About this RNA
Shown here is an 84-nucleotide sequence from Anhinga anhinga, a member of the family "Small nucleolar RNA U2-19". The literature on the family includes a 2004 paper in Curr Biol by Tycowski et al., "Guide RNAs with 5' Caps and Novel Box C/D snoRNA-like Domains for Modification of snRNAs in Metazoa". A search with the family's covariance model found it, with a score of 63 bits.

RNA sequence: GAUCUGUGAUGAGAAAUAGCCAAAUCUGAUGACCGGAAGAUAAAAUAAUCUUCCAGGUGUCAUGAUUUGUAUGGAGCUCUGAGA
Numbered sequence: 001g002a003u004c005u006g007u008g009a010u011g012a013g014a015a016a017u018a019g020c021c022a023a024a025u026c027u028g029a030u031g032a033c034c035g036g037a038a039g040a041u042a043a044a045a046u047a048a049u050c051u052u053c054c055a056g057g058u059g060u061c062a063u064g065a066u067u068u069g070u071a072u073g074g075a076g077c078u079c080u081g082a083g084a
Base pairs, nucleotide, nucleotide: 032058033057034056038051039050040049041048
The family's consensus secondary structure is taken from published work.